[Rfam]
RNA sequence: UUGGUACUCUGGGGGGCCACAGAAGGAGUGGUCUCGGCACGGCCGCUGCCAGGCUUUUCCUGCGAAUCCUUCA
Dot-bracket structure: ............[.[[[[...(((((((((.......)))]]]].]...((((.....))))....)))))).